[Rfam]
Background: Rfam assigns this 117-nucleotide sequence from Ectopseudomonas mendocina to the family "Pseudomon-1/ErsA RNA". Taxonomically the source falls in Ectopseudomonas mendocina (Bacteria, Pseudomonadales, Pseudomonadaceae, Ectopseudomonas). The family's RNA type in Rfam is small RNA. The family's consensus secondary structure is taken from published work. Rfam's curators write: Functions to regulate the AlgC enzyme. The sequence is in the family's curated seed alignment.

Nucleotides: 117
Stems, first nucleotide, its partner, number of pairs: 034059008064105003067101006074094004
Number, partner (000 for none) and nucleotide at each position: 001000a002000u003000g004000c005000u006000c007000c008000u009000u010000u011000g012000u013000u014000g015000u016000g017000u018000u019000a020000a021000g022000c023000g024000u025000u026000g027000g028000c029000a030000g031000a032000c033000a034059u035058c036057u037056g038055a039054a040053c041052c042000c043000c044000g045000c046000c047000c048000u049000a050000g051000c052041g053040g054039u055038u056037c057036a058035g059034a060000c061000c062000u063000u064105a065104a066103a067101c068100c069099c070098c071097g072096a073000a074094c075093u076092u077091c078000u079000c080000c081000c082000u083000c084000c085000c086000c087000a088000u089000a090000c091077g092076a093075a094074g095000c096072u097071c098070g099069g100068g101067g102000u103066u104065u105064u106000u107000u108000u109000u110000g111000c112000c113000c114000a115000a116000a117000a